[Rfam]
Annotation: A member of the RNA family "ZMP/ZTP riboswitch aptamer (pfl RNA motif)" from Streptomyces liangshanensis, 91 nucleotides long. Its family is annotated with regulation of purine nucleotide biosynthetic process and one-carbon metabolic process in the Gene Ontology. Taxonomically the source falls in Streptomyces (Bacteria, Bacillati, Kitasatosporales, Streptomycetaceae). The base pairs follow the family's consensus structure, which is taken from published work.
RNA sequence: GUACCGUACGGCGACUGGCGAACGCGGAAACGACCGCGGGGGAGCCGUGCGGUGCGACACGUACGAGGUGCCGUCCGCCUGGGCGCCCCGG
Number, nucleotide and partner (000 for none) at each position: 001g000002u000003a053004c052005c051006g050007u049008a048009c047010g046011g045012c044013g000014a000015c041016u040017g079018g078019c077020g076021a000022a000023c000024g037025c036026g035027g034028a000029a000030a000031c000032g000033a000034c027035c026036g025037c024038g000039g000040g016041g015042g000043a000044g012045c011046c010047g009048u008049g007050c006051g005052g004053u003054g000055c000056g000057a000058c000059a000060c000061g000062u000063a000064c000065g000066a000067g000068g086069u085070g084071c083072c082073g000074u000075c000076c020077g019078c018079c017080u000081g000082g072083g071084c070085g069086c068087c000088c000089c000090g000091g000